[Rfam]
RNA sequence: GCGGAGGGCCGGAUGGCCGCUGGGGCUCAGGCCCGAGAGGAAAGUCCGGACUCCACAAGGCAACGGUGCCGGGUAACGCCCGGGCGGGGAAACCCGACGGAAAGCGCCACAGAAAACAGACCGCCAUGACGGAUCGGAGGUUCGCCUCUGGCACAUCGUGGCAAGGGUGAAACGGUGGAGUAAGAGCCCACCGCGCCGCUGGCAACAGCGGCGGCACGGCAAGCCCCACCGGGAGCAAUGCCGAAUAGGGUCCCCGCGCGGGCCGGUCGGCGUCAGCCGAUACCGCCGCUAGGCUCGCCUUGGCCGAGAGGGACCGGGUUGGCAGCUCGAGCCGUGCAGCAAUGCUCGGCCUAGAGGAAUGGUCAUCGAAGGGGGCAACCCCGGAACAGGAUCCGGCUUACAGGCCCUCCGCGCGU
Numbered sequence: 001g002c003g004g005a006g007g008g009c010c011g012g013a014u015g016g017c018c019g020c021u022g023g024g025g026c027u028c029a030g031g032c033c034c035g036a037g038a039g040g041a042a043a044g045u046c047c048g049g050a051c052u053c054c055a056c057a058a059g060g061c062a063a064c065g066g067u068g069c070c071g072g073g074u075a076a077c078g079c080c081c082g083g084g085c086g087g088g089g090a091a092a093c094c095c096g097a098c099g100g101a102a103a104g105c106g107c108c109a110c111a112g113a114a115a116a117c118a119g120a121c122c123g124c125c126a127u128g129a130c131g132g133a134u135c136g137g138a139g140g141u142u143c144g145c146c147u148c149u150g151g152c153a154c155a156u157c158g159u160g161g162c163a164a165g166g167g168u169g170a171a172a173c174g175g176u177g178g179a180g181u182a183a184g185a186g187c188c189c190a191c192c193g194c195g196c197c198g199c200u201g202g203c204a205a206c207a208g209c210g211g212c213g214g215c216a217c218g219g220c221a222a223g224c225c226c227c228a229c230c231g232g233g234a235g236c237a238a239u240g241c242c243g244a245a246u247a248g249g250g251u252c253c254c255c256g257c258g259c260g261g262g263c264c265g266g267u268c269g270g271c272g273u274c275a276g277c278c279g280a281u282a283c284c285g286c287c288g289c290u291a292g293g294c295u296c297g298c299c300u301u302g303g304c305c306g307a308g309a310g311g312g313a314c315c316g317g318g319u320u321g322g323c324a325g326c327u328c329g330a331g332c333c334g335u336g337c338a339g340c341a342a343u344g345c346u347c348g349g350c351c352u353a354g355a356g357g358a359a360u361g362g363u364c365a366u367c368g369a370a371g372g373g374g375g376c377a378a379c380c381c382c383g384g385a386a387c388a389g390g391a392u393c394c395g396g397c398u399u400a401c402a403g404g405c406c407c408u409c410c411g412c413g414c415g416u
Base pairs, nucleotide, nucleotide: 001412002411003410004409005408006407007406008405009404010403011401012367013366014365015364016363017362018361020037021036023034024033025032026031042399043398044397046396047395048394049393050392051235052234053233054232062300064231065230066229067228068227069083070082071081072080073079084098085096086095087094088093099226100225104224105223106220107219108218121166122165123162124161125160126159127158128157129156131154174192175191176190177189178188193215194213195212196211197210198209199208200207201206239324240323241322242321249315250314251313252312253311254310294308295307296306297305331350332349333348334347336345337344338343
A member of the RNA family "Bacterial RNase P class A" from Ruegeria arenilitoris, 416 nucleotides long. The family's consensus secondary structure is taken from published work. Gene Ontology terms of the family: ribonuclease P activity, dimeric ribonuclease P complex and tRNA processing. A search with the family's covariance model found it, with a score of 283 bits.